[Rfam]
RNA sequence: UUACUCCCUCAGUAAAGAAAUAUAAGAGCGUUUAGAUCACUACUUUAGUGAUCUAAGCGUUCUUAUAUUUCUUUACAGAGGGAGUAC
Numbered sequence: 001u002u003a004c005u006c007c008c009u010c011a012g013u014a015a016a017g018a019a020a021u022a023u024a025a026g027a028g029c030g031u032u033u034a035g036a037u038c039a040c041u042a043c044u045u046u047a048g049u050g051a052u053c054u055a056a057g058c059g060u061u062c063u064u065a066u067a068u069u070u071c072u073u074u075a076c077a078g079a080g081g082g083a084g085u086a087c
Stems, first nucleotide, its partner, number of pairs: 003085003007081004013075005019069023
This 87-nucleotide RNA from Triticum turgidum belongs to the Rfam family "MIR1120/MIR1122 microRNA precursor family".
Taxonomically the source falls in Triticum turgidum (Eukaryota, Streptophyta, Liliopsida, Triticinae).
On this family, see Yao et al., Genome Biol 2007: "Cloning and characterization of microRNAs from wheat (Triticum aestivum L.)".
The match comes from Rfam's covariance-model search (89 bits).
Its family is annotated with RISC complex and miRNA-mediated post-transcriptional gene silencing in the Gene Ontology.
Rfam 15.1 lists 44,765 matches to the family in 8 species.